[Rfam]
RNA sequence: AUUCCUUAUUGGCCUUGGCUAAAAUAUAGUAUUAUAUCUGUUCUUAUCAGUUUAAAAUGAUAUGUCCUCUAUCAAAGAACAAUAUAGUAAAUGGGUUUUUGGAUCAAGGAGAUGGAAUGAGAGCUUGCUCUGUCCACUCCACACAGACACCUGGUAUUGCAGUACCAUCAGGAAUGGCACACUCC
Numbered sequence: 001a002u003u004c005c006u007u008a009u010u011g012g013c014c015u016u017g018g019c020u021a022a023a024a025u026a027u028a029g030u031a032u033u034a035u036a037u038c039u040g041u042u043c044u045u046a047u048c049a050g051u052u053u054a055a056a057a058u059g060a061u062a063u064g065u066c067c068u069c070u071a072u073c074a075a076a077g078a079a080c081a082a083u084a085u086a087g088u089a090a091a092u093g094g095g096u097u098u099u100u101g102g103a104u105c106a107a108g109g110a111g112a113u114g115g116a117a118u119g120a121g122a123g124c125u126u127g128c129u130c131u132g133u134c135c136a137c138u139c140c141a142c143a144c145a146g147a148c149a150c151c152u153g154g155u156a157u158u159g160c161a162g163u164a165c166c167a168u169c170a171g172g173a174a175u176g177g178c179a180c181a182c183u184c185c
Stems, first nucleotide, its partner, number of pairs: 007024001009022001011020003045062004064080002067077002070074001108140004114134002120131004144177001148176001150172006
Shown here is a 185-nucleotide sequence from Tupaia belangeri, a member of the family "U2 spliceosomal RNA".
A reference for the family is Zwieb (1997), "The uRNA database", Nucleic Acids Res.
The match comes from Rfam's covariance-model search (102 bits).
Rfam links the family to the GO terms pre-mRNA branch point binding, mRNA branch site recognition and U2 snRNP.
Taxonomically the source falls in Tupaia belangeri (Eukaryota, Bilateria, Amniota, Euarchontoglires).
From the family's description: U2 is a small nuclear RNA (snRNA) component of the spliceosome (involved in pre-mRNA splicing). Complementary binding between U2 snRNA (in an area lying towards the 5' end but 3' to hairpin I) and the branchpoint sequence (BPS) of the intron results the bulging out of an unpaired adenosine, on the BPS, which initiates a nucleophilic attack at the intronic 5' splice site, thus starting the first of two transesterification reactions that mediate splicing.